[Rfam]
RNA sequence: ACGACCUUACUUGAACAGGAUCUGUUCUAUAGGCUCGUACCUCCUUAUCCUUGAUUUCUCAAGUGAUAGGAAACCAAGUCUGGUGGAUGACAUGGGCCCACUUGACCAGAGUGUGAUUAACGGCUCUGCGGCUUGGAUUCUAAGCCGUCCGAGCUGUAGAGGAUCGUUCUCAGCCGGGCUUGUUCUUGGCUGGGAUGGUCAAGUGGUUGUCUGACAGACU
Numbered sequence: 001a002c003g004a005c006c007u008u009a010c011u012u013g014a015a016c017a018g019g020a021u022c023u024g025u026u027c028u029a030u031a032g033g034c035u036c037g038u039a040c041c042u043c044c045u046u047a048u049c050c051u052u053g054a055u056u057u058c059u060c061a062a063g064u065g066a067u068a069g070g071a072a073a074c075c076a077a078g079u080c081u082g083g084u085g086g087a088u089g090a091c092a093u094g095g096g097c098c099c100a101c102u103u104g105a106c107c108a109g110a111g112u113g114u115g116a117u118u119a120a121c122g123g124c125u126c127u128g129c130g131g132c133u134u135g136g137a138u139u140c141u142a143a144g145c146c147g148u149c150c151g152a153g154c155u156g157u158a159g160a161g162g163a164u165c166g167u168u169c170u171c172a173g174c175c176g177g178g179c180u181u182g183u184u185c186u187u188g189g190c191u192g193g194g195a196u197g198g199u200c201a202a203g204u205g206g207u208u209g210u211c212u213g214a215c216a217g218a219c220u
Stems, first nucleotide, its partner, number of pairs: 001038002003035001005033003013027006043069001046066001049063001051061001053059001078219005098206011110168004120157007128148008170193009

Shown here is a 220-nucleotide sequence from Phtheirospermum japonicum, a member of the family "Plant small nucleolar RNA U3".
The base pairs follow the family's consensus structure, which is taken from published work.
The organism belongs to Phtheirospermum, within Eukaryota.
Small nucleolar RNAs (snoRNAs) are involved in the processing and modification of rRNA in the nucleolus. There are two main classes of snoRNAs: the box C/D class, and the box H/ACA class. U3 snoRNA is a member of the box C/D class. Indeed, the box C/D element is a subset of the six short sequence elements found in all U3 snoRNAs, namely boxes A, A', B, C, C', and D. The U3 snoRNA secondary structure is characterised by a small 5' domain (with boxes A and A'), and a larger 3' domain (with boxes B, C, C', and D), the two domains being linked by a single-stranded hinge.
On this family, see Marz and Stadler, RNA Biol 2010: "Comparative analysis of eukaryotic U3 snoRNA".
It is annotated as a C/D-box small nucleolar RNA.
The family has 24 seed sequences and 3,759 matches in Rfam 15.1.
Its Rfam clan is "U3 clan".